[Rfam]
The record is a 261-nucleotide RNA sequence from Chaetothyriales sp. CBS 132003, which matches "Fungal signal recognition particle RNA" in Rfam.
The base pairs follow the family's consensus structure, which is taken from published work.
Rfam links the family to the GO terms SRP-dependent cotranslational protein targeting to membrane, signal sequence recognition, signal recognition particle, plasma membrane targeting and signal recognition particle, endoplasmic reticulum targeting.
The organism belongs to Chaetothyriales, within Eukaryota.
The family is grouped with related families in Rfam's "SRP clan".
A search with the family's covariance model found it, with a score of 104 bits.
Nucleotides: 261
Base pairs, nucleotide, nucleotide: 002014003013004012018259019258020257021256023253024252025251026250027249028248029247033244034241035240036239039237040236041235042234043233045231046230047229048228060223061222062221064219065218066217067216068215070214071213072212074207075206076205077204078203079201080200081199083196084195085194086193087192088191089190090189091188093135095133096132097131099130100129101128102127104122105121106120107119108118110117111116136140144187145186146185149182150181154179155178156177157176162171163170164169
Number, partner (000 for none) and nucleotide at each position: 001000u002014u003013c004012c005000u006000g007000u008000c009000g010000u011000g012004g013003g014002a015000u016000u017000u018259g019258a020257g021256g022000a023253g024252a025251a026250u027249g028248c029247c030000u031000c032000u033244a034241g035240a036239a037000a038000g039237c040236g041235u042234c043233a044000c045231c046230u047229g048228u049000u050000u051000c052000a053000c054000a055000u056000u057000c058000c059000a060223c061222u062221u063000g064219c065218a066217a067216u068215g069000u070214g071213u072212g073000c074207c075206u076205c077204g078203c079201u080200c081199g082000a083196c084195a085194c086193u087192u088191g089190g090189g091188c092000u093135g094000g095133c096132u097131a098000u099130a100129u101128c102127a103000c104122u105121c106120g107119u108118g109000u110117g111116u112000g113000c114000a115000g116111a117110c118108c119107a120106c121105g122104a123000u124000c125000g126000c127102u128101g129100a130099u131097u132096g133095g134000c135093c136140u137000u138000a139000a140136g141000c142000a143000a144187u145186g146185u147000u148000u149182g150181g151000c152000a153000c154179u155178c156177g157176u158000c159000a160000g161000g162171g163170u164169a165000g166000a167000a168000a169164u170163a171162u172000c173000g174000c175000a176157g177156c178155g179154a180000a181150c182149c183000u184000u185146a186145c187144a188091g189090c190089c191088u192087g193086a194085g195084u196083g197000g198000g199081c200080g201079g202000c203078g204077u205076g206075a207074g208000a209000u210000g211000a212072c213071a214070c215068c216067g217066u218065u219064g220000u221062a222061a223060g224000a225000u226000a227000c228048a229047c230046a231045g232000u233043u234042g235041g236040u237039g238000u239036u240035u241034u242000c243000g244033u245000u246000c247029g248028g249027u250026g251025u252024u253023c254000a255000a256021c257020u258019u259018u260000u261000u